The family of this 95-nucleotide sequence from Treponema denticola is "TD-2 RNA". It is one of the family's seed sequences. Rfam classes the family as a small RNA. Rfam 15.1 lists 310 matches to the family in 11 species. Its Rfam clan is "TD (Treponema denticola) motifs". Pairs were carried over by alignment from the consensus structure, which is taken from published work. The source organism's lineage runs through Bacteria, Pseudomonadati, Spirochaetota, Treponema and Treponema denticola. The literature on the family includes a 2007 paper in Nucleic Acids Res by Weinberg et al., "Identification of 22 candidate structured RNAs in bacteria using the CMfinder comparative genomics pipeline".

Nucleotides: 095
Base pairs, nucleotide, nucleotide: 001018002017003016004015005014006013032055033054034053035052036051037050038049039048040047041046058091059090060089061088062087063086064085065084066083067082068081069080070079071078
Number, partner (000 for none) and nucleotide at each position: 001018a002017u003016g004015g005014a006013c007000a008000c009000g010000g011000a012000u013006g014005u015004c016003c017002a018001u019000g020000g021000u022000u023000c024000c025000a026000a027000a028000c029000u030000u031000g032055a033054g034053a035052g036051u037050u038049u039048u040047g041046c042000g043000u044000a045000a046041g047040c048039a049038a050037a051036a052035c053034u054033c055032u056000a057000a058091g059090a060089u061088u062087a063086a064085a065084a066083a067082u068081g069080u070079a071078c072000a073000a074000g075000g076000a077000u078071g079070u080069a081068c082067a083066u084065u085064u086063u087062u088061a089060a090059u091058c092000g093000a094000c095000c